[Rfam]
RNA sequence: GGAUGCUCUGAAGACCUGCACUCUAGGCCACGCACGGAGGACGCUGGUUCCUCACGGGCCCCGCGCCCGCCUAGGGGAAAGUCCCCGGACCGCCGGCAGAGAGUGCCGGGCGCGGCCGCGCCCCGCCCGCCGCCGCCUCACGCCAACCCCCGCCGAGAGGCCCUCGGGCUGAGCGGGUGAGCGCGGGGCGGGCCUUCGUCACCGCCACAGAUACGCAGGUAGUGCCACGGGCGCACCAACAGAACGGGGCUCACUCUCAGGCCAUC
Numbered sequence: 001g002g003a004u005g006c007u008c009u010g011a012a013g014a015c016c017u018g019c020a021c022u023c024u025a026g027g028c029c030a031c032g033c034a035c036g037g038a039g040g041a042c043g044c045u046g047g048u049u050c051c052u053c054a055c056g057g058g059c060c061c062c063g064c065g066c067c068c069g070c071c072u073a074g075g076g077g078a079a080a081g082u083c084c085c086c087g088g089a090c091c092g093c094c095g096g097c098a099g100a101g102a103g104u105g106c107c108g109g110g111c112g113c114g115g116c117c118g119c120g121c122c123c124c125g126c127c128c129g130c131c132g133c134c135g136c137c138u139c140a141c142g143c144c145a146a147c148c149c150c151c152g153c154c155g156a157g158a159g160g161c162c163c164u165c166g167g168g169c170u171g172a173g174c175g176g177g178u179g180a181g182c183g184c185g186g187g188g189c190g191g192g193c194c195u196u197c198g199u200c201a202c203c204g205c206c207a208c209a210g211a212u213a214c215g216c217a218g219g220u221a222g223u224g225c226c227a228c229g230g231g232c233g234c235a236c237c238a239a240c241a242g243a244a245c246g247g248g249g250c251u252c253a254c255u256c257u258c259a260g261g262c263c264a265u266c
Stems, first nucleotide, its partner, number of pairs: 002266004007261005014220006022075007037053005080251002083249004095107004108123006125193003131188001133186004139181001141179001150176004160169003222236004

A member of the RNA family "RNase MRP" from Arenaria interpres, 266 nucleotides long. The family's consensus secondary structure is taken from published work. By type it is a ribozyme. From the family's description: RNase MRP is an enzymatically active ribonucleoprotein with two distinct roles in eukaryotes. In mitochondria it plays a direct role in the initiation of mitochondrial DNA replication. In the nucleus it is involved in precursor rRNA processing, where it cleaves the internal transcribed spacer 1 between 18S and 5.8S rRNAs. Despite distinct functions, RNase MRP has been shown to be evolutionarily related to RNase P. Like eukaryotic RNase P, RNase MRP is not catalytically active without associated protein subunits.